[Rfam]
RNA: SmY spliceosomal RNA
Organism: Thelazia callipaeda
RNA sequence: CUAAUUCACUGUUAGUUUUCGGGGCCUUAGUGAAGACCCUUAGAACAAUUUUUGGUCAGCCCAUUGACGGUUUUGGGCUG
Numbered sequence: 001c002u003a004a005u006u007c008a009c010u011g012u013u014a015g016u017u018u019u020c021g022g023g024g025c026c027u028u029a030g031u032g033a034a035g036a037c038c039c040u041u042a043g044a045a046c047a048a049u050u051u052u053u054g055g056u057c058a059g060c061c062c063a064u065u066g067a068c069g070g071u072u073u074u075g076g077g078c079u080g
Base pairs, nucleotide, nucleotide: 022039023038024037026035027034028033058079059078060077061076062075063074066071